A member of the RNA family "Small nucleolar RNA SNORD113/SNORD114 family" from Microcebus murinus, 72 nucleotides long. By type it is a C/D-box small nucleolar RNA. Gene Ontology terms of the family: nucleolus and RNA processing. From the family's description: The imprinted human domain at 14q32 contains two clusters of tandemly repeated small nucleolar RNAs named 14q(I) and 14q(II) snoRNAs. These two clusters are named SNORD113 and SNORD114 respectively in the HGNC approved gene symbol nomenclature. The snoRNAs found in both clusters are clearly related and are represented here by a single family. These snoRNAs are intron encoded and are processed from the tissue-specific non-coding human MEG8 RNA, which lies downstream of the imprinted genes DLK1 and GTL2. snoRNAs 14q(I) and 14q(II) differ from previously identified C/D box snoRNAs in their expression profiles and lack of complementarity to rRNA and snRNA. Homologues of these snoRNAs are found in the imprinted non-coding mouse transcript Rian, and in the rat non-coding Bsr (brain-specific repetitive) RNA.

RNA sequence: UGGGCCAAUGAUGAAUAGCAUGGGGUUUCUGAAACAAUUUUGAUUAAACCCGUCUGCAAUUCUGAGGGCCAU
Numbered sequence: 001u002g003g004g005c006c007a008a009u010g011a012u013g014a015a016u017a018g019c020a021u022g023g024g025g026u027u028u029c030u031g032a033a034a035c036a037a038u039u040u041u042g043a044u045u046a047a048a049c050c051c052g053u054c055u056g057c058a059a060u061u062c063u064g065a066g067g068g069c070c071a072u
Base pairs, nucleotide, nucleotide: 002070003069005067006066